Record summary
This 84-nucleotide sequence from Castor canadensis belongs to the Rfam family "mir-500 microRNA precursor family".
[Rfam]
RNA sequence: GUUCCUCCUCUCUAAUCCUUGCUACCUGGGUGAGAGUGCGUUCUUAAUGCAGUGCACCUGGGCAAGGGUUCAGUGAGGGAGAGC
Numbered sequence: 001g002u003u004c005c006u007c008c009u010c011u012c013u014a015a016u017c018c019u020u021g022c023u024a025c026c027u028g029g030g031u032g033a034g035a036g037u038g039c040g041u042u043c044u045u046a047a048u049g050c051a052g053u054g055c056a057c058c059u060g061g062g063c064a065a066g067g068g069u070u071c072a073g074u075g076a077g078g079g080a081g082a083g084c
Stems, first nucleotide, its partner, number of pairs: 014070007025062008037051003
The base pairs follow the family's consensus structure, which was predicted with RNAalifold.